The record is a 162-nucleotide RNA sequence from Carnegiea gigantea, which matches "small nucleolar RNA snoR137" in Rfam. On this family, see Chen and Wu, Nucleic Acids Res 2009: "Mining small RNA sequencing data: a new approach to identify small nucleolar RNAs in Arabidopsis". The family's RNA type in Rfam is H/ACA-box small nucleolar RNA. Rfam 15.1 lists 808 matches to the family in 221 species. The organism belongs to Carnegiea, within Eukaryota.
RNA sequence: UUUGCUUCUUACUUGUGAACUCCUUCGUCUUUUUCUCUCUAUAGGAUGGAGAAAACGUGAGGGAUGUUCAUGUUUCGGAAGCAGAGAUUAAUCACCAGUCUUCAAAACGGCAUUGAUGCAUUUUCUACAUCCUGCAUCGUGCUCCCGAAACCUGGUAAAUCU
Numbered sequence: 001u002u003u004g005c006u007u008c009u010u011a012c013u014u015g016u017g018a019a020c021u022c023c024u025u026c027g028u029c030u031u032u033u034u035c036u037c038u039c040u041a042u043a044g045g046a047u048g049g050a051g052a053a054a055a056c057g058u059g060a061g062g063g064a065u066g067u068u069c070a071u072g073u074u075u076c077g078g079a080a081g082c083a084g085a086g087a088u089u090a091a092u093c094a095c096c097a098g099u100c101u102u103c104a105a106a107a108c109g110g111c112a113u114u115g116a117u118g119c120a121u122u123u124u125c126u127a128c129a130u131c132c133u134g135c136a137u138c139g140u141g142c143u144c145c146c147g148a149a150a151c152c153u154g155g156u157a158a159a160u161c162u
Base pairs, nucleotide, nucleotide: 003083004082005081006080007079008078016070017069018068019067020066021064022063023062024061025060026059027058028057094156095155096154097153098152109143110142111141114139115138116137117136118135